Notes: A member of the RNA family "GA-cis RNA", 87 nucleotides long.
[Rfam]
RNA sequence: AGGAGGAAGCACCAUGCAUCGAAGAUGCAUUUAAAAAUGGUGCUGACGAAAUGCCGCCGAACGGAUGUGAGGGGGGCAAUACAAAAA
Numbered sequence: 001a002g003g004a005g006g007a008a009g010c011a012c013c014a015u016g017c018a019u020c021g022a023a024g025a026u027g028c029a030u031u032u033a034a035a036a037a038u039g040g041u042g043c044u045g046a047c048g049a050a051a052u053g054c055c056g057c058c059g060a061a062c063g064g065a066u067g068u069g070a071g072g073g074g075g076g077c078a079a080u081a082c083a084a085a086a087a
Stems, first nucleotide, its partner, number of pairs: 008044006014030006053077003057072002061068002
Overview
The family's consensus secondary structure is taken from published work.